The family of this 140-nucleotide RNA sequence is "U4 spliceosomal RNA".

RNA sequence: AGCUUUGCGCAGAGGCGAUAACGUGACCAAUGAGGCUCAGCCGAGGUGCGUUUAUUGCUGGUUGAAAACUUUCACCCAAUUGCCCGCCGCGGCGCCUGAAACAUGGCGGCCGUACGAAUUUUUGAACGCCCUGAAGGGGG
Numbered sequence: 001a002g003c004u005u006u007g008c009g010c011a012g013a014g015g016c017g018a019u020a021a022c023g024u025g026a027c028c029a030a031u032g033a034g035g036c037u038c039a040g041c042c043g044a045g046g047u048g049c050g051u052u053u054a055u056u057g058c059u060g061g062u063u064g065a066a067a068a069c070u071u072u073c074a075c076c077c078a079a080u081u082g083c084c085c086g087c088c089g090c091g092g093c094g095c096c097u098g099a100a101a102c103a104u105g106g107c108g109g110c111c112g113u114a115c116g117a118a119u120u121u122u123u124g125a126a127c128g129c130c131c132u133g134a135a136g137g138g139g140g
Base pairs, nucleotide, nucleotide: 020052021051022050023049024048026047027046028045034042035041036040085116086115088112089111091110093108094107095106096105097103098102129140130139131138132137
Annotation:
The family has 177 seed sequences and 32,178 matches in Rfam 15.1. It is annotated as a spliceosomal small nuclear RNA.